[Rfam]
RNA: Selenocysteine transfer RNA
RNA sequence: GGAAGAGAUCGUCCCCCGGUGGGGCGGCCGGUCUUCAAAACCGACAGGGGGCGCCAAGCGGUCCCUGGUGGGUUCGACUCCCACUCUCUUCC
Numbered sequence: 001g002g003a004a005g006a007g008a009u010c011g012u013c014c015c016c017c018g019g020u021g022g023g024g025c026g027g028c029c030g031g032u033c034u035u036c037a038a039a040a041c042c043g044a045c046a047g048g049g050g051g052c053g054c055c056a057a058g059c060g061g062u063c064c065c066u067g068g069u070g071g072g073u074u075c076g077a078c079u080c081c082c083a084c085u086c087u088c089u090u091c092c
Stems, first nucleotide, its partner, number of pairs: 001092008010026005016021001027045001029043004047066005069083004